[Rfam]
RNA sequence: GGAGAGCUGUCUGAGUGGUUGAAGGAGCUCGCCUGGAAAGUGAGUAUAGGUUAAUCGCCUAUCGGGGGUUCGAAUCCCCCGCUCUCCG
Numbered sequence: 001g002g003a004g005a006g007c008u009g010u011c012u013g014a015g016u017g018g019u020u021g022a023a024g025g026a027g028c029u030c031g032c033c034u035g036g037a038a039a040g041u042g043a044g045u046a047u048a049g050g051u052u053a054a055u056c057g058c059c060u061a062u063c064g065g066g067g068g069u070u071c072g073a074a075u076c077c078c079c080c081g082c083u084c085u086c087c088g
Stems, first nucleotide, its partner, number of pairs: 001087007010026003028044005064080005

Overview
A member of the RNA family "tRNA" from Thiomicrorhabdus sediminis, 88 nucleotides long. NCBI's taxonomy places the organism under Bacteria, Pseudomonadati, Pseudomonadota, Gammaproteobacteria, Thiomicrorhabdus. The match comes from Rfam's covariance-model search (50 bits). The family's RNA type in Rfam is transfer RNA. About the family: Transfer RNA (tRNA) molecules are approximately 80 nucleotides in length. Their secondary structure includes four short double-helical elements and three loops (D, anti-codon, and T loops). Further hydrogen bonds mediate the characteristic L-shaped molecular structure. tRNAs have two regions of fundamental functional importance: the anti-codon, which is responsible for specific mRNA codon recognition, and the 3' end, to which the tRNAs corresponding amino acid is attached (by aminoacyl-tRNA synthetases). tRNAs cope with the degeneracy of the genetic code in two manners: having more than one tRNA (with a specific anti-codon) for a particular amino acid; and 'wobble' base-pairing, i.e. permitting non-standard base-pairing at the 3rd anti-codon position.